[Rfam]
RNA sequence: AUUUUAUACAGAAGAAGGGAGAGAACAGGCUCUACGAACUUCUAGCAACCGCCCCAAAGGGAAAGGUGCUAACUCCUGCCUAAAAACAUUUUAGGAACUAUAAAUU
Numbered sequence: 001a002u003u004u005u006a007u008a009c010a011g012a013a014g015a016a017g018g019g020a021g022a023g024a025a026c027a028g029g030c031u032c033u034a035c036g037a038a039c040u041u042c043u044a045g046c047a048a049c050c051g052c053c054c055c056a057a058a059g060g061g062a063a064a065g066g067u068g069c070u071a072a073c074u075c076c077u078g079c080c081u082a083a084a085a086a087c088a089u090u091u092u093a094g095g096a097a098c099u100a101u102a103a104a105u106u
Stems, first nucleotide, its partner, number of pairs: 001106001003104006013043005021032003026078004044070004049066002052061003079095006

Shown here is a 106-nucleotide RNA from Flexibacter flexilis, a member of the family "SAM riboswitch aptamer (S box leader)". Pairs were carried over by alignment from the consensus structure, which is taken from published work. Its family is annotated with regulation of gene expression in the Gene Ontology. A search with the family's covariance model found it, with a score of 82 bits. Lineage of the source: Bacteria > Pseudomonadati > Flexibacteraceae > Flexibacter > Flexibacter flexilis.